Rfam assigns this 96-nucleotide RNA sequence from Pseudomonas mangiferae to the family "ivy-DE RNA". Rfam classes the family as a cis-regulatory element.
RNA sequence: CGGCCAGGGGGCCGGGUUGCCUUGGAUGAAACAGGUCCGAGGCGACCUAGGGGUACAGGGAGUGCCUCCGCGAAUGCGGGCCAGGUCAGGCGUACU
Numbered sequence: 001c002g003g004c005c006a007g008g009g010g011g012c013c014g015g016g017u018u019g020c021c022u023u024g025g026a027u028g029a030a031a032c033a034g035g036u037c038c039g040a041g042g043c044g045a046c047c048u049a050g051g052g053g054u055a056c057a058g059g060g061a062g063u064g065c066c067u068c069c070g071c072g073a074a075u076g077c078g079g080g081c082c083a084g085g086u087c088a089g090g091c092g093u094a095c096u
Stems, first nucleotide, its partner, number of pairs: 002087004010082004014048005020042008050068007